[Rfam]
About this RNA:
A member of the RNA family "PyrR binding site" from Neobacillus vireti, 117 nucleotides long. The family has 41 seed sequences and 1,498 matches in Rfam 15.1. Its family is annotated with pyrimidine nucleobase transport and pyrimidine nucleobase biosynthetic process in the Gene Ontology. About the family: This family represents the PyrR binding site and terminator structure. This RNA structure is found upstream of a variety of genes involved in pyrimidine biosynthesis and transport.
RNA sequence: AGCCCUUUUAAAUGCAGUCCCGUGAGGCUGACAAAGGGGAAAAAGCCGUUCAUUUUAUUUAGGUGCGGCAAUUUCUAACCCUCUUUGUGCCUUCAUGGUCAAAGAGGGUUUUUUUAU
Numbered sequence: 001a002g003c004c005c006u007u008u009u010a011a012a013u014g015c016a017g018u019c020c021c022g023u024g025a026g027g028c029u030g031a032c033a034a035a036g037g038g039g040a041a042a043a044a045g046c047c048g049u050u051c052a053u054u055u056u057a058u059u060u061a062g063g064u065g066c067g068g069c070a071a072u073u074u075c076u077a078a079c080c081c082u083c084u085u086u087g088u089g090c091c092u093u094c095a096u097g098g099u100c101a102a103a104g105a106g107g108g109u110u111u112u113u114u115u116a117u
Stems, first nucleotide, its partner, number of pairs: 003039006015030005040074003045069005051063001053061001077110011